[Rfam]
RNA sequence: CGACCUCAUGCGGGAGAGUCCCGGCGCCCCAAGGGCCCGGGCGCCGAAGGAGCAAAUCCUCCCCGGAAUCUCUCAGGCACCCGUACCGCGUGAGUCAG
Numbered sequence: 001c002g003a004c005c006u007c008a009u010g011c012g013g014g015a016g017a018g019u020c021c022c023g024g025c026g027c028c029c030c031a032a033g034g035g036c037c038c039g040g041g042c043g044c045c046g047a048a049g050g051a052g053c054a055a056a057u058c059c060u061c062c063c064c065g066g067a068a069u070c071u072c073u074c075a076g077g078c079a080c081c082c083g084u085a086c087c088g089c090g091u092g093a094g095u096c097a098g
Stems, first nucleotide, its partner, number of pairs: 006093008020041004043078003046074002050072003057065001
Dot-bracket structure: .....((((((((......((((..............)))).(((((..(((....(.......)....))))).))).......)))))))).....
A member of the RNA family "Glycine riboswitch aptamer" from Streptomyces sp. PT12, 98 nucleotides long.